[Rfam]
RNA sequence: GUGGGGUACGGAGAUAUGAAGCCGACGAGUGCUUGGGGAAAGUUAGUGGGGUCCAUGUGUGCCAUCGCCGGGGUCCUAACCAUCGCCCUCCCAGUUCCCGUCAUCGUCAGUAAU
Numbered sequence: 001g002u003g004g005g006g007u008a009c010g011g012a013g014a015u016a017u018g019a020a021g022c023c024g025a026c027g028a029g030u031g032c033u034u035g036g037g038g039a040a041a042g043u044u045a046g047u048g049g050g051g052u053c054c055a056u057g058u059g060u061g062c063c064a065u066c067g068c069c070g071g072g073g074u075c076c077u078a079a080c081c082a083u084c085g086c087c088c089u090c091c092c093a094g095u096u097c098c099c100g101u102c103a104u105c106g107u108c109a110g111u112a113a114u
Base pairs, nucleotide, nucleotide: 001114002113004111008107009106010105011104013102014101015100018097019096020095037077038076040074049063050062